[Rfam]
RNA sequence: AUACAUCUAGAUCCAUACCCCUAAACUCCCUAGAUGUUAUUGGAUAGCGAUCGCUCGCUGUCCUUUUUUU
Numbered sequence: 001a002u003a004c005a006u007c008u009a010g011a012u013c014c015a016u017a018c019c020c021c022u023a024a025a026c027u028c029c030c031u032a033g034a035u036g037u038u039a040u041u042g043g044a045u046a047g048c049g050a051u052c053g054c055u056c057g058c059u060g061u062c063c064u065u066u067u068u069u070u
Stems, first nucleotide, its partner, number of pairs: 004036006042063009
The family of this 70-nucleotide RNA from Heyndrickxia oleronia is "Listeria sRNA sbrA".
The family's RNA type in Rfam is small RNA.
The source organism's lineage runs through Bacteria, Bacillota, Bacilli, Caryophanales and Heyndrickxia.